[Rfam]
RNA: Group II catalytic intron D1-D4-1
Organism: Desulfosporosinus orientis
RNA sequence: CAACCGCACUGCAAGGUGCGGUUGAACCGGCAGGAGUCAGCAGAGGCCAUAUUACUCAGACGAAGAUAUCUCGCAUGAGGAAGGGC
Numbered sequence: 001c002a003a004c005c006g007c008a009c010u011g012c013a014a015g016g017u018g019c020g021g022u023u024g025a026a027c028c029g030g031c032a033g034g035a036g037u038c039a040g041c042a043g044a045g046g047c048c049a050u051a052u053u054a055c056u057c058a059g060a061c062g063a064a065g066a067u068a069u070c071u072c073g074c075a076u077g078a079g080g081a082a083g084g085g086c
Base pairs, nucleotide, nucleotide: 001024002023003022004021005020006019007018008017009016010015037044038043046086047085048084055079056078057077061073062072063071